RNA sequence: ACGUCAGGGAAAGGACUCUGCUGUCGGUCCCACUGCAAAGUUCACAGAAUGGGUGGUGGGCACCGAAUCCGGACUCUGCCUGUG
Number, nucleotide and partner (000 for none) at each position: 001a083002c082003g081004u000005c078006a077007g076008g075009g074010a000011a000012a000013g070014g069015a068016c000017u066018c065019u000020g063021c000022u062023g061024u060025c059026g000027g057028u000029c000030c056031c055032a054033c053034u052035g000036c000037a000038a000039a000040g000041u000042u000043c000044a000045c000046a000047g000048a000049a000050u000051g000052g034053g033054u032055g031056g030057u027058g000059g025060g024061c023062a022063c020064c000065g018066a017067a000068u015069c014070c013071g000072g000073a000074c009075u008076c007077u006078g005079c000080c000081u003082g002083u001084g000
mir-541 microRNA precursor family: an 84-nucleotide RNA sequence from Pan troglodytes. Gene Ontology terms of the family: RISC complex, negative regulation of gene expression and long-term synaptic potentiation. The base pairs follow the family's consensus structure, which was predicted with RNAalifold. For this family Rfam cites "Identification of clustered microRNAs using an ab initio prediction method" (Sewer et al., BMC Bioinformatics, 2005). Taxonomically the source falls in Pan (Eukaryota, Catarrhini, Hominidae, Homininae).